Shown here is a 356-nucleotide RNA sequence from Anaerohalosphaera lusitana, a member of the family "transfer-messenger RNA". From the family's description: Bacterial tmRNA, also known as 10Sa RNA or SsrA, is named for its dual tRNA and mRNA-like properties. Its role is to liberate the mRNA from a stalled ribosome. To accomplish this part of the tmRNA is used as a reading frame that ends in a translation stop signal. The broken mRNA is replaced in the ribosome by the tmRNA and translation of the tmRNA leads to addition of a proteolysis tag to the incomplete protein enabling recognition by a protease. Recently a number of permuted tmRNA genes have been found encoded in two parts. tmRNAs have been identified in eubacteria and some chloroplasts but are absent from archaeal and eukaryote nuclear genomes. The family's consensus secondary structure is taken from published work. Gene Ontology term of the family: RNA catabolic process. The match comes from Rfam's covariance-model search (164 bits). It is annotated as a non-coding RNA gene.
[Rfam]
RNA sequence: GGGGGCGACUGGUAUCGACCGGAUAGGUAGAUGGCCAGGUUGCAUGUCCAGGACGCCAGUUGGCCUGGUUAAUCAUCUGGCACCUUAAUUUAAUUGGCAACUCACAGUUGCGUAUGGCUGCCUAAAAUGGCAACCCGUUCUUGCUGACCUCGCCCGCGGGUUUGUAAAGAACGUCAAUUAGCGGGAUAGUCUCUGCGGUUGUCCGCGACGCAAAGGCGAAACUAAUUGCGGAAUAGCGAGUGCGGCAGCCUGUCGUUUGGCGGUUGCAUGAGCGAAUCUCAAACAAACGACUAAGCAUGUAGAAGCCUGACCUGAAAUAUCACGGGACGGGGGUUCGAAUCCCCCCGCCUCCAAUU
Numbered sequence: 001g002g003g004g005g006c007g008a009c010u011g012g013u014a015u016c017g018a019c020c021g022g023a024u025a026g027g028u029a030g031a032u033g034g035c036c037a038g039g040u041u042g043c044a045u046g047u048c049c050a051g052g053a054c055g056c057c058a059g060u061u062g063g064c065c066u067g068g069u070u071a072a073u074c075a076u077c078u079g080g081c082a083c084c085u086u087a088a089u090u091u092a093a094u095u096g097g098c099a100a101c102u103c104a105c106a107g108u109u110g111c112g113u114a115u116g117g118c119u120g121c122c123u124a125a126a127a128u129g130g131c132a133a134c135c136c137g138u139u140c141u142u143g144c145u146g147a148c149c150u151c152g153c154c155c156g157c158g159g160g161u162u163u164g165u166a167a168a169g170a171a172c173g174u175c176a177a178u179u180a181g182c183g184g185g186a187u188a189g190u191c192u193c194u195g196c197g198g199u200u201g202u203c204c205g206c207g208a209c210g211c212a213a214a215g216g217c218g219a220a221a222c223u224a225a226u227u228g229c230g231g232a233a234u235a236g237c238g239a240g241u242g243c244g245g246c247a248g249c250c251u252g253u254c255g256u257u258u259g260g261c262g263g264u265u266g267c268a269u270g271a272g273c274g275a276a277u278c279u280c281a282a283a284c285a286a287a288c289g290a291c292u293a294a295g296c297a298u299g300u301a302g303a304a305g306c307c308u309g310a311c312c313u314g315a316a317a318u319a320u321c322a323c324g325g326g327a328c329g330g331g332g333g334u335u336c337g338a339a340u341c342c343c344c345c346c347g348c349c350u351c352c353a354a355u356u
Stems, first nucleotide, its partner, number of pairs: 001352007019325003022321004033312002036309006043299005048068005055081005061075001116135002121129001136173006142166003147161004153185005190218001192216003197211001201234002204231001236273002240269006248261003252291004256286002329345005